[Rfam]
RNA sequence: UCUUUUCUUUCCACCACAAACUCGUGAACGGCUUGACACCAGCAUUCGUCUUCGGACUUAUAACGGAGUCGCCGUUCAGUUUGACUUCGAGGAGCCAUCAAAUCCCCAUGAUGUCAAUUAUCUAGUCAACGGGUCUGAGAUCGAUUAAGCACCUGCAACCUCGAUGUUUUUGAGCCCCUCUCGGGAGCUCGACGGAGAGACGGGUGUCUUAAGUCACUAUAUUCCAAAUCUUUUCGCAGAUGCCGUCGGCGCAUGAUGUUAAAGACUCACCAUGGUGAAUACAGUU
Dot-bracket structure: .................(.((((((((((((..((((..(...((..(((....)))..))...)..))))))))))....(((((....((.(.(.............).).))........))))))))))).).............((((((.........((((...(((((((....))).))))))))......)))))).......(((((((........(((((..(((..((((...)))).....))).)))))......)))))))........
Rfam assigns this 286-nucleotide RNA from Pseudogymnoascus sp. 05NY08 to the family "A. fumigatus sRNA Afu_309". On this family, see Jochl et al., Nucleic Acids Res 2008: "Small ncRNA transcriptome analysis from Aspergillus fumigatus suggests a novel mechanism for regulation of protein synthesis". NCBI's taxonomy places the organism under Eukaryota, Dikarya, sordariomyceta, Thelebolales, Pseudogymnoascus.